[Rfam]
RNA: c-di-AMP riboswitch aptamer (ydaO/yuaA leader)
Organism: Paenibacillus catalpae
RNA sequence: AUGCUUUAUUCGCUGAGUUUCCGUAAUGGGAAACGGGGGAACCAAACGAUAAGCGGGAGCGGCAUCGGUGUGAGAGCCGAUGUGUCUUGCUGCUUGUCAGGGGUGAAUCCGGGUCCGGCUGCUCGCAGCCGGACCCGGUAGGGCGACUCUCACCGUCCGAAUCCGUCAGCUAACCUCGUAAGCGAAGAGGAUGUCAGC
Number, nucleotide and partner (000 for none) at each position: 001a000002u000003g000004c000005u000006u000007u000008a000009u000010u000011c184012g183013c182014u181015g000016a000017g000018u032019u031020u030021c029022c028023g000024u000025a000026a000027u000028g022029g021030g020031a019032a018033a179034c178035g177036g176037g175038g174039g000040a000041a000042c000043c100044a000045a000046a000047c000048g000049a000050u000051a000052a000053g000054c000055g000056g000057g000058a000059g000060c000061g000062g000063c000064a000065u000066c000067g000068g000069u000070g000071u000072g000073a000074g000075a000076g000077c000078c000079g000080a000081u000082g000083u000084g000085u000086c000087u000088u000089g000090c000091u000092g000093c000094u000095u000096g000097u000098c000099a000100g043101g164102g163103g162104u000105g000106a000107a000108u000109c138110c137111g136112g135113g134114u133115c132116c131117g130118g129119c128120u127121g126122c000123u000124c000125g000126c121127a120128g119129c118130c117131g116132g115133a114134c113135c112136c111137g110138g109139u000140a000141g158142g157143g156144c155145g000146a000147c000148u000149c000150u000151c000152a000153c000154c000155g144156u143157c142158c141159g000160a000161a000162u103163c102164c101165g000166u000167c000168a000169g000170c000171u000172a000173a000174c038175c037176u036177c035178g034179u033180a000181a014182g013183c012184g011185a000186a000187g000188a000189g000190g000191a000192u000193g000194u000195c000196a000197g000198c000